TPP riboswitch aptamer (THI element): a 105-nucleotide RNA from Cerasibacillus quisquiliarum. Vitamin B(1) in its active form thiamin pyrophosphate (TPP) is an essential coenzyme that is synthesised by coupling of pyrimidine and thiazole moieties in bacteria.

[Rfam]
RNA sequence: AGUGACCACAAGGGGAGCUUUUCGCUGAGAGUGAACGUUUCACACGUUCUAACCCUUCGAACCUGUUUAGUUAAUACUAACGUAGGGAUGUGGUGAAAUAAAGUG
Numbered sequence: 001a002g003u004g005a006c007c008a009c010a011a012g013g014g015g016a017g018c019u020u021u022u023c024g025c026u027g028a029g030a031g032u033g034a035a036c037g038u039u040u041c042a043c044a045c046g047u048u049c050u051a052a053c054c055c056u057u058c059g060a061a062c063c064u065g066u067u068u069a070g071u072u073a074a075u076a077c078u079a080a081c082g083u084a085g086g087g088a089u090g091u092g093g094u095g096a097a098a099u100a101a102a103g104u105g
Stems, first nucleotide, its partner, number of pairs: 006093005011056004016050001017025002033049006062086004067080004